[Rfam]
RNA sequence: UAAGCAGAGAUUAUAUUGGUUAUGUGUCAUAUUCAACACAAUUUUCAUGACUCAUGAGUUUUCUCUGCAAAACUGAACUUUGGGAAGAUGGGCAGUUGUGUUUUGUCAUUGGUUAAAAUCUUUCAACAAUCAUCUUCCCUACAUUC
Numbered sequence: 001u002a003a004g005c006a007g008a009g010a011u012u013a014u015a016u017u018g019g020u021u022a023u024g025u026g027u028c029a030u031a032u033u034c035a036a037c038a039c040a041a042u043u044u045u046c047a048u049g050a051c052u053c054a055u056g057a058g059u060u061u062u063c064u065c066u067g068c069a070a071a072a073c074u075g076a077a078c079u080u081u082g083g084g085a086a087g088a089u090g091g092g093c094a095g096u097u098g099u100g101u102u103u104u105g106u107c108a109u110u111g112g113u114u115a116a117a118a119u120c121u122u123u124c125a126a127c128a129a130u131c132a133u134c135u136u137c138c139c140u141a142c143a144u145u146c
Base pairs, nucleotide, nucleotide: 004068005067006066007065008064009063010062016036082139083138084137085136086135087134088133089132090131091130095127096126097125098124